[Rfam]
RNA: Small nucleolar RNA SNORA17
Organism: Mus musculus
RNA sequence: UGCCCUAGAGGCAUUGCAGGUGUGGCUGCUGUGUCACCUGUGCAUCAGUAGGUGACCGAGGAGACAGGCUAUGUCUGUGCUCAGUGCUCUGACCUGUGGACAUCUGAAUAAUUGGUAACCUAACAGU
Numbered sequence: 001u002g003c004c005c006u007a008g009a010g011g012c013a014u015u016g017c018a019g020g021u022g023u024g025g026c027u028g029c030u031g032u033g034u035c036a037c038c039u040g041u042g043c044a045u046c047a048g049u050a051g052g053u054g055a056c057c058g059a060g061g062a063g064a065c066a067g068g069c070u071a072u073g074u075c076u077g078u079g080c081u082c083a084g085u086g087c088u089c090u091g092a093c094c095u096g097u098g099g100a101c102a103u104c105u106g107a108a109u110a111a112u113u114g115g116u117a118a119c120c121u122a123a124c125a126g127u
Base pairs, nucleotide, nucleotide: 003054004052005051006050007049010046011045016043017042018041022037023036024035025034026033063124066121067120068119070117071116072115078110079109081107082106083105084104085102086101088099089098